Rfam assigns this 46-nucleotide RNA sequence from Salvelinus namaycush to the family "Histone 3' UTR stem-loop". The source organism's lineage runs through Eukaryota, Metazoa, Craniata, Teleostomi and Salvelinus. About the family: The mRNAs of metazoan histone genes lack a poly-A tail. 3' end processing occurs at a site between a highly conserved stem-loop (modelled by this family) and a purine rich region around 20 nts downstream (the histone downstream element, or HDE). The match comes from Rfam's covariance-model search (37 bits).

RNA sequence: CCAAAGGCUCUUUUAAGAGCCAUCCAAUAUUGAAAAAAUUUAGAAC
Numbered sequence: 001c002c003a004a005a006g007g008c009u010c011u012u013u014u015a016a017g018a019g020c021c022a023u024c025c026a027a028u029a030u031u032g033a034a035a036a037a038a039u040u041u042a043g044a045a046c
Stems, first nucleotide, its partner, number of pairs: 006021006